[Rfam]
RNA sequence: CCCCGAUGAGGAACCUCCCACGUGUCUGAGCGCCUCCCAGCAGCAGAGCCUGAGCUCAGGCAGAACCCACUGCUGCUGGGGGGCGGAAAGGAGGAAGCUGCGUUCAGCUGAACGGUCUGAGGGGG
Numbered sequence: 001c002c003c004c005g006a007u008g009a010g011g012a013a014c015c016u017c018c019c020a021c022g023u024g025u026c027u028g029a030g031c032g033c034c035u036c037c038c039a040g041c042a043g044c045a046g047a048g049c050c051u052g053a054g055c056u057c058a059g060g061c062a063g064a065a066c067c068c069a070c071u072g073c074u075g076c077u078g079g080g081g082g083g084c085g086g087a088a089a090g091g092a093g094g095a096a097g098c099u100g101c102g103u104u105c106a107g108c109u110g111a112a113c114g115g116u117c118u119g120a121g122g123g124g125g
Stems, first nucleotide, its partner, number of pairs: 001124004
This 125-nucleotide sequence from Chrysolophus pictus belongs to the Rfam family "Small nucleolar RNA SNORD22".
Gene Ontology terms of the family: nucleolus and RNA processing.
Pairs were carried over by alignment from the consensus structure, which was predicted with PFOLD.
Rfam 15.1 lists 1,081 matches to the family in 414 species.